Annotation:
This 67-nucleotide RNA from Pipistrellus kuhlii belongs to the Rfam family "mir-9256 microRNA precursor family". The source organism's lineage runs through Eukaryota, Deuterostomia, Vertebrata, Theria and Pipistrellus. Rfam links the family to the GO terms RISC complex and miRNA-mediated post-transcriptional gene silencing.
RNA sequence: AUAUACACCGAGUGGCUAGAUUAUUAUGAUCUCUGAACUCAUAAUAAUCUGGCCACUCAAUGUAUAU
Numbered sequence: 001a002u003a004u005a006c007a008c009c010g011a012g013u014g015g016c017u018a019g020a021u022u023a024u025u026a027u028g029a030u031c032u033c034u035g036a037a038c039u040c041a042u043a044a045u046a047a048u049c050u051g052g053c054c055a056c057u058c059a060a061u062g063u064a065u066a067u
Stems, first nucleotide, its partner, number of pairs: 004064004010058008019049010